[Rfam]
RNA sequence: AGUUCUCUGGGGUGUGCGCCAGUCGUUAUAGUCCCUCGAGCCUAUGCGCAGUACCCAGGGGGCCAAAUGCUAGACAGACCCGUGUGCAUGUCCGUGCGACGGAAAGCCUGACGGUCUGUCUGCGGCCACCCACCUUGAACCAAUGGGUUCAAGGGCCAGAACGACAGCGGCACUCUGGAGAACUC
Numbered sequence: 001a002g003u004u005c006u007c008u009g010g011g012g013u014g015u016g017c018g019c020c021a022g023u024c025g026u027u028a029u030a031g032u033c034c035c036u037c038g039a040g041c042c043u044a045u046g047c048g049c050a051g052u053a054c055c056c057a058g059g060g061g062g063c064c065a066a067a068u069g070c071u072a073g074a075c076a077g078a079c080c081c082g083u084g085u086g087c088a089u090g091u092c093c094g095u096g097c098g099a100c101g102g103a104a105a106g107c108c109u110g111a112c113g114g115u116c117u118g119u120c121u122g123c124g125g126c127c128a129c130c131c132a133c134c135u136u137g138a139a140c141c142a143a144u145g146g147g148u149u150c151a152a153g154g155g156c157c158a159g160a161a162c163g164a165c166a167g168c169g170g171c172a173c174u175c176u177g178g179a180g181a182a183c184u185c
Stems, first nucleotide, its partner, number of pairs: 002183014017169003033155003038150005058131003062126003067121001069120001074119007086107002091103004